[Rfam]
RNA sequence: AGUCGGGGACGACCCCACUACAGACUCUGGGAUUGGACCGGGACGACCCGG
Numbered sequence: 001a002g003u004c005g006g007g008g009a010c011g012a013c014c015c016c017a018c019u020a021c022a023g024a025c026u027c028u029g030g031g032a033u034u035g036g037a038c039c040g041g042g043a044c045g046a047c048c049c050g051g
Stems, first nucleotide, its partner, number of pairs: 002019001005016004038051005
Shown here is a 51-nucleotide sequence from Vibrio viridaestus, a member of the family "Guanidine-II riboswitch aptamer (mini-ykkC)".
The family's consensus secondary structure is taken from published work.
Simpler in structure and has fewer highly conserved nucleotide positions than the ykkC-yxkD leader. Despite this each of its two stem-loop structures directly bind free guanidine. Therefore, mini-ykkC RNA motif represents a distinct class of guanidine-sensing RNAs.
Taxonomically the source falls in Vibrio (Bacteria, Pseudomonadota, Gammaproteobacteria, Vibrionales).
The match comes from Rfam's covariance-model search (33 bits).